[Rfam]
RNA: Actinobacteria sRNA Ms_IGR-5
RNA sequence: ACACGGGAAAGGAGGUGGUCCGAGGAAUGAGUUCUUCUUGGAUGCGUGAGGUGGCUGCGGGCUAGCAGCUUUCCGGCUGGUCCACCUCCGGUGUGAACGCCGAGGUGCUGCUGGCCACUACGACGCAGUCACCCGACCCGCGGGCGUCAGGGAACCUCAUCCGGUCCCUGAGCGGUCCUCCUCACGAGCACCACGCCCGCGGGUCGUUCCGU
Numbered sequence: 001a002c003a004c005g006g007g008a009a010a011g012g013a014g015g016u017g018g019u020c021c022g023a024g025g026a027a028u029g030a031g032u033u034c035u036u037c038u039u040g041g042a043u044g045c046g047u048g049a050g051g052u053g054g055c056u057g058c059g060g061g062c063u064a065g066c067a068g069c070u071u072u073c074c075g076g077c078u079g080g081u082c083c084a085c086c087u088c089c090g091g092u093g094u095g096a097a098c099g100c101c102g103a104g105g106u107g108c109u110g111c112u113g114g115c116c117a118c119u120a121c122g123a124c125g126c127a128g129u130c131a132c133c134c135g136a137c138c139c140g141c142g143g144g145c146g147u148c149a150g151g152g153a154a155c156c157u158c159a160u161c162c163g164g165u166c167c168c169u170g171a172g173c174g175g176u177c178c179u180c181c182u183c184a185c186g187a188g189c190a191c192c193a194c195g196c197c198c199g200c201g202g203g204u205c206g207u208u209c210c211g212u
Stems, first nucleotide, its partner, number of pairs: 015058005060116007068108002071105001074102003134206013148170006